[Rfam]
Nucleotides: 117
Base pairs, nucleotide, nucleotide: 016032017031018030019029020028079116080115081114082113089112090111092109093108095106096105097104
Number, partner (000 for none) and nucleotide at each position: 001000a002000g003000c004000g005000u006000a007000u008000u009000u010000u011000c012000u013000c014000a015000g016032g017031g018030c019029g020028g021000a022000g023000c024000u025000c026000g027000a028020c029019c030018g031017c032016c033000c034000g035000u036000u037000c038000a039000a040000g041000c042000g043000a044000u045000g046000a047000c048000c049000g050000g051000c052000u053000u054000c055000a056000u057000c058000g059000a060000c061000g062000a063000g064000c065000a066000u067000c068000g069000u070000g071000a072000a073000g074000c075000c076000u077000a078000c079116g080115g081114g082113g083000u084000c085000g086000a087000g088000c089112c090111g091000a092109u093108c094000u095106g096105c097104a098000a099000g100000a101000u102000g103000c104097u105096g106095c107000c108093g109092a110000u111090c112089g113082c114081c115080c116079c117000a